The record is a 127-nucleotide RNA from Takifugu rubripes, which matches "Small nucleolar RNA SNORA71" in Rfam. NCBI's taxonomy places the organism under Eukaryota, Bilateria, Eurypterygia, Tetraodontoidei, Takifugu. From the family's description: The members of this family belong to the H/ACA class of snoRNAs which bind a number of proteins (including dyskerin, Gar1p and Nop10p) to form snoRNP complexes. The family's RNA type in Rfam is H/ACA-box small nucleolar RNA. The base pairs follow the family's consensus structure, which was predicted with PFOLD. On this family, see Ganot et al., Genes Dev 1997: "The family of box ACA small nucleolar RNAs is defined by an evolutionarily conserved secondary structure and ubiquitous sequence elements essential for RNA accumulation".
RNA sequence: UCCUGUAUCGAAAGUGAUCAUGGCGUGCUUGUGGCCAGGUCAUUGAUAGUACAGGAAGAAUAACGUGAGAGCCUUUCCCGUGUUUGUUGGAGCUUGCGUUCCUCUCAGACCCUGAUGCUCUCUCACA
Dot-bracket structure: ((((((((....(((((((..(((.........))).)))))))....))))))))........(.((((((.........(((((..(((........)))...)))))......)))))).)...